[Rfam]
RNA sequence: UGGGAGACAUACUUCUUUAUAUGUCCAUAUGGAAGUGCCAAUGCUAUGGAAUGUAAAGAAGUAUGUAUCUC
Number, nucleotide and partner (000 for none) at each position: 001u000002g000003g000004g069005a068006g000007a066008c065009a064010u063011a062012c061013u060014u059015c058016u057017u056018u055019a054020u053021a052022u051023g000024u000025c049026c048027a047028u046029a045030u000031g000032g000033a000034a000035g000036u000037g000038c000039c000040a000041a000042u000043g000044c000045u029046a028047u027048g026049g025050a000051a022052u021053g020054u019055a018056a017057a016058g015059a014060a013061g012062u011063a010064u009065g008066u007067a000068u005069c004070u000071c000

A member of the RNA family "mir-1 microRNA precursor family" from Xenopus tropicalis, 71 nucleotides long. For this family Rfam cites "microRNAs: tiny regulators with great potential" (Ambros, Cell, 2001). This family represents the microRNA (miRNA) mir-1 family. miRNAs are transcribed as ~70nt precursors (modelled here) and subsequently processed by the Dicer enzyme to give a ~22nt product. In this case the mature sequence comes from the 3' arm of the precursor. The base pairs follow the family's consensus structure, which was predicted with RNAalifold. Taxonomically the source falls in Silurana (Eukaryota, Craniata, Vertebrata, Sarcopterygii). Rfam links the family to the GO terms miRNA-mediated post-transcriptional gene silencing and RISC complex. The sequence is in the family's curated seed alignment.